[Rfam]
RNA sequence: AACGUGUUAUAUGACUGACGGAUAAGUGGAAUAACCACAUGAAAUAUAACAAAUAAGAGCCGACCGUCUGGGCGAUAAAC
Numbered sequence: 001a002a003c004g005u006g007u008u009a010u011a012u013g014a015c016u017g018a019c020g021g022a023u024a025a026g027u028g029g030a031a032u033a034a035c036c037a038c039a040u041g042a043a044a045u046a047u048a049a050c051a052a053a054u055a056a057g058a059g060c061c062g063a064c065c066g067u068c069u070g071g072g073c074g075a076u077a078a079a080c
Stems, first nucleotide, its partner, number of pairs: 005051008015041001017068005026038004059073003